[Rfam]
RNA sequence: CGCCUCACCUCGGGGUGCCGGACCGUGCGAGACGCGCGCAAGGCUGAGAUGCGGGAGCCCCCGCGAACCCGUUGAACCUGAACCGGGUAACACCGGCGGAGGGAAGGUGUCCGGCGUCCCC
Numbered sequence: 001c002g003c004c005u006c007a008c009c010u011c012g013g014g015g016u017g018c019c020g021g022a023c024c025g026u027g028c029g030a031g032a033c034g035c036g037c038g039c040a041a042g043g044c045u046g047a048g049a050u051g052c053g054g055g056a057g058c059c060c061c062c063g064c065g066a067a068c069c070c071g072u073u074g075a076a077c078c079u080g081a082a083c084c085g086g087g088u089a090a091c092a093c094c095g096g097c098g099g100a101g102g103g104a105a106g107g108u109g110u111c112c113g114g115c116g117u118c119c120c121c
Base pairs, nucleotide, nucleotide: 006109007108008107009106010105011071012070013069014068016065017044018043019042051064052063053062054061055060077102078101079100083096084095085094086093
RNA: TPP riboswitch aptamer (THI element)